This 125-nucleotide RNA from Dyella sp. OK004 belongs to the Rfam family "t44 RNA". It scores 61 bits against the family's covariance model. For this family Rfam cites "Transcriptome analysis of Escherichia coli using high-density oligonucleotide probe arrays" (Tjaden et al., Nucleic Acids Res, 2002). The base pairs follow the family's consensus structure, which was predicted with LocARNA. It is annotated as a small RNA.
[Rfam]
RNA sequence: AUAGGGACAAACCAACGCCACACACGCGUCGACACCGCCUUCGGGGUGCCGCAGUCGUUUCCACUACGCCCCAAGGGGGCACGGAACGCCCGCGGUCGAAGCCGGGGAUGCGUGGAGGUCCCAAC
Numbered sequence: 001a002u003a004g005g006g007a008c009a010a011a012c013c014a015a016c017g018c019c020a021c022a023c024a025c026g027c028g029u030c031g032a033c034a035c036c037g038c039c040u041u042c043g044g045g046g047u048g049c050c051g052c053a054g055u056c057g058u059u060u061c062c063a064c065u066a067c068g069c070c071c072c073a074a075g076g077g078g079g080c081a082c083g084g085a086a087c088g089c090c091c092g093c094g095g096u097c098g099a100a101g102c103c104g105g106g107g108a109u110g111c112g113u114g115g116a117g118g119u120c121c122c123a124a125c
Stems, first nucleotide, its partner, number of pairs: 023114008035105003039101005048096005